Shown here is a 111-nucleotide sequence from Geotalea daltonii, a member of the family "SAM riboswitch aptamer (S box leader)". NCBI's taxonomy places the organism under Bacteria, Pseudomonadati, Thermodesulfobacteriota, Geobacterales, Geotalea daltonii. The match comes from Rfam's covariance-model search (79 bits).

RNA sequence: UCUUUAUCGAGAGUGGUGGAGGGAAAGGCCCUGCGAAACCACAGCAACCUGUGCAUUUUUUAUUGCAACGGGUGCUAAUUCCUGCCGAUAAGUAACCGGCGAAGAUGAGGU
Number, nucleotide and partner (000 for none) at each position: 001u000002c110003u109004u108005u107006a106007u105008c104009g000010a000011g000012a000013g042014u041015g040016g039017u038018g000019g000020a000021g031022g030023g029024a000025a000026a083027g082028g081029c023030c022031c021032u000033g000034c000035g000036a000037a000038a017039c016040c015041a014042c013043a076044g075045c074046a073047a000048c072049c071050u000051g066052u065053g064054c000055a000056u000057u000058u000059u000060u000061u000062a000063u000064u053065g052066c051067a000068a000069c000070g000071g049072g048073u046074g045075c044076u043077a000078a000079u000080u103081c028082c027083u026084g100085c099086c098087g097088a000089u095090a000091a000092g000093u000094a000095a089096c000097c087098g086099g085100c084101g000102a000103a080104g008105a007106u006107g005108a004109g003110g002111u000